This 100-nucleotide RNA sequence belongs to the Rfam family "L4-Archaeoglobi ribosomal protein leades". The base pairs follow the family's consensus structure, which is taken from published work. The literature on the family includes a 2020 paper in BMC Microbiol by Eckert and Weinberg, "Discovery of 20 novel ribosomal leader candidates in bacteria and archaea". It is one of the family's seed sequences. It is annotated as a cis-regulatory leader.
RNA sequence: CUGACGGCCGCGUCCGGGUCAAUUGCGGACUGCAACACCCGAUCUCCCUCCUCCUCCCCGACGGGAUGGAGGUGUCCGAAGGAGAGCGCGUCGCCAUCAG
Numbered sequence: 001c002u003g004a005c006g007g008c009c010g011c012g013u014c015c016g017g018g019u020c021a022a023u024u025g026c027g028g029a030c031u032g033c034a035a036c037a038c039c040c041g042a043u044c045u046c047c048c049u050c051c052u053c054c055u056c057c058c059c060g061a062c063g064g065g066a067u068g069g070a071g072g073u074g075u076c077c078g079a080a081g082g083a084g085a086g087c088g089c090g091u092c093g094c095c096a097u098c099a100g
Stems, first nucleotide, its partner, number of pairs: 001100004009090005015041004023035005043085005048074001050072004